Record summary:
The record is a 234-nucleotide RNA from Rhododendron simsii, which matches "Small nucleolar RNA snoR2/U65" in Rfam. For this family Rfam cites "Localization and processing from a polycistronic precursor of novel snoRNAs in maize" (Shaw et al., J Cell Sci, 1998). The family is grouped with related families in Rfam's "SNORA65 clan". Taxonomically the source falls in Rhododendron (Eukaryota, Gunneridae, Ericales, Ericaceae). The family's consensus secondary structure was predicted with WAR. The family's RNA type in Rfam is H/ACA-box small nucleolar RNA.
RNA sequence: GGUCCGAUGCCACGUCGACGGCAGCCGCAGAGCAUUCACCGGCGAUGCUAUGAUUGGACCAAAAUCAGUUUACUGUUUCGCAUUUUUUUAAAAUCCGGAUGAUCGGGCCAAUUCGCGCUCACCUCAAUUUAUUUUGGAUUCUAAAAUUAACGAUUGGGCAAACCCUUGGCUCAAGAUUUGGAAUGUUUGGCUUGUUUUGUUUUUGUCAUGGAGCCAGUUUUUGCGAUUACAUUU
Number, nucleotide and partner (000 for none) at each position: 001g000002g059003u058004c057005c056006g055007a054008u053009g051010c000011c000012a000013c047014g046015u045016c044017g043018a000019c000020g040021g039022c000023a000024g033025c032026c000027g000028c000029a000030g000031a000032g025033c024034a000035u000036u000037c000038a000039c021040c020041g000042g000043c017044g016045a015046u014047g013048c000049u000050a000051u009052g000053a008054u007055u006056g005057g004058a003059c002060c000061a000062a000063a000064a000065u000066c000067a000068g000069u000070u000071u000072a000073c000074u000075g000076u000077u000078u226079c225080g224081c223082a222083u000084u000085u000086u000087u000088u000089u000090a000091a000092a000093a000094u000095c211096c210097g209098g207099a206100u205101g204102a000103u000104c000105g000106g000107g000108c000109c000110a000111a000112u000113u000114c000115g000116c000117g000118c000119u000120c000121a000122c000123c000124u000125c000126a000127a000128u000129u000130u000131a000132u000133u000134u000135u000136g000137g000138a000139u000140u000141c000142u000143a000144a000145a000146a000147u000148u000149a000150a000151c000152g000153a000154u000155u000156g000157g000158g000159c000160a000161a000162a000163c000164c000165c000166u000167u000168g000169g000170c000171u000172c000173a000174a000175g000176a000177u000178u000179u000180g000181g000182a000183a000184u000185g000186u000187u000188u000189g000190g000191c000192u000193u000194g000195u000196u000197u000198u000199g000200u000201u000202u000203u000204u101205g100206u099207c098208a000209u097210g096211g095212a000213g000214c000215c000216a000217g000218u000219u000220u000221u000222u082223g081224c080225g079226a078227u000228u000229a000230c000231a000232u000233u000234u000